[Rfam]
RNA sequence: CUACUCCCUCCGUCCCAUAAUAUAAAAGCGUUUUUGACAUUAGUGUCAAAAAUGCUCUUAUAUUAUGGGAAUGUCAAAAAUGCUUUUAUAUUAUGGGACGGAGGGAGUAG
Numbered sequence: 001c002u003a004c005u006c007c008c009u010c011c012g013u014c015c016c017a018u019a020a021u022a023u024a025a026a027a028g029c030g031u032u033u034u035u036g037a038c039a040u041u042a043g044u045g046u047c048a049a050a051a052a053u054g055c056u057c058u059u060a061u062a063u064u065a066u067g068g069g070a071a072u073g074u075c076a077a078a079a080a081u082g083c084u085u086u087u088a089u090a091u092u093a094u095g096g097g098a099c100g101g102a103g104g105g106a107g108u109a110g
Stems, first nucleotide, its partner, number of pairs: 003108003007104005013098005019092023
The record is a 110-nucleotide RNA from Aegilops tauschii, which matches "MIR1120/MIR1122 microRNA precursor family" in Rfam. The family has 6 seed sequences and 44,765 matches in Rfam 15.1. The family's consensus secondary structure was predicted with RNAalifold.